This 88-nucleotide RNA sequence from Macaca mulatta belongs to the Rfam family "NoRC associated RNA, pRNA". The organism belongs to Macaca, within Eukaryota. Pairs were carried over by alignment from the consensus structure, which is taken from published work. Gene Ontology term of the family: chromatin remodeling.

RNA sequence: CCAUGGUGGACUUUUGGGAACAGGUAUCUGGGUCACGUGUUUCUGAGUCGGUGGCGUGGUUCGUGACUCAACACCCUGCCCCUAGGCA
Dot-bracket structure: ...(.(.((.......((........((((.(((((((...............))))))).)).)).........))...))).)...